[Rfam]
Nucleotides: 166
Stems, first nucleotide, its partner, number of pairs: 005162006011150002013095001015146003020140003025136008039113005045074005054065004080104004086098003115124003
Number, partner (000 for none) and nucleotide at each position: 001000a002000g003000g004000g005162a006161a007160a008159c009158u010157u011150g012149u013095u014000a015146g016145g017144u018000g019000a020140g021139g022138u023000u024000c025136c026135u027134a028133u029132a030131u031130g032129a033000a034000a035000a036000u037000a038000u039113g040112c041111u042110a043109c044000u045074g046073c047072c048071c049070a050000g051000a052000a053000a054065u055064g056063u057062g058000g059000a060000g061000a062057c063056a064055c065054a066000c067000c068000a069000a070049u071048g072047g073046g074045u075000c076000a077000g078000c079000a080104g081103g082102u083101a084000c085000u086098a087097c088096c089000g090000a091000a092000u093000u094000a095013a096088g097087g098086u099000u100000u101083u102082a103081u104080c105000u106000a107000a108000u109043g110042u111041a112040g113039c114000u115124g116123a117122g118000a119000a120000u121000u122117c123116u124115c125000u126000a127000a128000g129032u130031c131030a132029u133028a134027u135026a136025g137000u138022g139021c140020c141000a142000a143000a144017g145016c146015u147000c148000g149012a150011c151000u152000a153000g154000g155000u156000g157010g158009a159008g160007u161006u162005u163000u164000u165000a166000g
M-box riboswitch aptamer (ykoK leader): a 166-nucleotide RNA from Clostridium acidisoli. For this family Rfam cites "Insights into metalloregulation by M-box riboswitch RNAs via structural analysis of manganese-bound complexes" (Ramesh et al., J Mol Biol, 2011). It scores 145 bits against the family's covariance model. The pairing is the family consensus, mapped onto this sequence. Rfam's curators write: M-box riboswitch, also know as ykoK leader is described as a metaloregulatory RNA that sense divalent metals and function as a genetic control element of genes related to divalent metal transport in bacteria. NCBI's taxonomy places the organism under Bacteria, Bacillati, Bacillota, Eubacteriales, Clostridium acidisoli.